RNA sequence: UGGAUCAAUGAUGAGUAUGCGUGGGGCAUCUGAACAACAUUUUGAUUAAACCCAGUCUGUAACUCUGAGGUCCGU
Numbered sequence: 001u002g003g004a005u006c007a008a009u010g011a012u013g014a015g016u017a018u019g020c021g022u023g024g025g026g027c028a029u030c031u032g033a034a035c036a037a038c039a040u041u042u043u044g045a046u047u048a049a050a051c052c053c054a055g056u057c058u059g060u061a062a063c064u065c066u067g068a069g070g071u072c073c074g075u
Stems, first nucleotide, its partner, number of pairs: 002073005

This 75-nucleotide sequence from Monodon monoceros belongs to the Rfam family "Small nucleolar RNA SNORD113/SNORD114 family". Taxonomically the source falls in Monodon (Eukaryota, Vertebrata, Teleostomi, Sarcopterygii). The imprinted human domain at 14q32 contains two clusters of tandemly repeated small nucleolar RNAs named 14q(I) and 14q(II) snoRNAs. The base pairs follow the family's consensus structure, which is taken from published work. It is annotated as a C/D-box small nucleolar RNA.